[Rfam]
RNA sequence: UGGGUAGUAUCGAAGAUGAAUUACACCAAACAGAAAAGCAUUAAUACUUAUAAUAUAACUCAUAUCUAUAUGAAUGAGAUUAAAAU
Numbered sequence: 001u002g003g004g005u006a007g008u009a010u011c012g013a014a015g016a017u018g019a020a021u022u023a024c025a026c027c028a029a030a031c032a033g034a035a036a037a038g039c040a041u042u043a044a045u046a047c048u049u050a051u052a053a054u055a056u057a058a059c060u061c062a063u064a065u066c067u068a069u070a071u072g073a074a075u076g077a078g079a080u081u082a083a084a085a086u
Stems, first nucleotide, its partner, number of pairs: 001028003004024005010019002056082003059078005065073002

Overview
A member of the RNA family "pan motif" from Clostridium saccharoperbutylacetonicum, 86 nucleotides long. It is annotated as a cis-regulatory element. The match comes from Rfam's covariance-model search (52 bits). Lineage of the source: Bacteria > Clostridia > Clostridiaceae > Clostridium > Clostridium saccharoperbutylacetonicum N1-4.